[Rfam]
Nucleotides: 057
Base pairs, nucleotide, nucleotide: 019037020036022034023033024032025031
Number, partner (000 for none) and nucleotide at each position: 001000a002000a003000u004000a005000g006000g007000c008000c009000u010000u011000u012000g013000u014000a015000c016000c017000g018000c019037a020036c021000u022034c023033a024032u025031c026000a027000u028000u029000u030000a031025g032024a033023u034022g035000g036020g037019u038000c039000c040000c041000g042000a043000a044000a045000a046000g047000c048000a049000a050000c051000a052000u053000a054000g055000g056000a057000a

Notes:
The family of this 57-nucleotide RNA from Malus baccata is "Plastid-ndhJ 3UTR RNA". The literature on the family includes a 2023 paper in Plant Commun by Richter et al., "Retrograde signaling in plants: A critical review focusing on the GUN pathway and beyond". Rfam's curators write: Plastid ndhJ is a non-coding RNA (ncRNA) present in plastids. It was identified as a short stem-loop motif in the 3 prime untranslate region (3UTR) of ndhJ gene. The family's consensus secondary structure was predicted with LocARNA. Rfam classes the family as a cis-regulatory element. Taxonomically the source falls in Malus (Eukaryota, Viridiplantae, Streptophyta, fabids).